RNA sequence: GUUGAGGGGAAUGUUGCCUGGCUCAAGGCUUUUCAUAGUUUGAUCUAUCUACUAUGAUUAAGGCUUCGGGCCAGGCUUCAUCCCCCUCAAA
Numbered sequence: 001g002u003u004g005a006g007g008g009g010a011a012u013g014u015u016g017c018c019u020g021g022c023u024c025a026a027g028g029c030u031u032u033u034c035a036u037a038g039u040u041u042g043a044u045c046u047a048u049c050u051a052c053u054a055u056g057a058u059u060a061a062g063g064c065u066u067c068g069g070g071c072c073a074g075g076c077u078u079c080a081u082c083c084c085c086c087u088c089a090a091a
Stems, first nucleotide, its partner, number of pairs: 002090008011081003016076006024068001026066001
mir-166 microRNA precursor family: a 91-nucleotide RNA sequence. Rfam links the family to the GO terms miRNA-mediated post-transcriptional gene silencing and RISC complex. Rfam's curators write: This family represents the plant microRNA (miRNA) precursor mir-166. The base pairs follow the family's consensus structure, which was predicted with PFOLD. On this family, see Reinhart et al., Genes Dev 2002: "MicroRNAs in plants".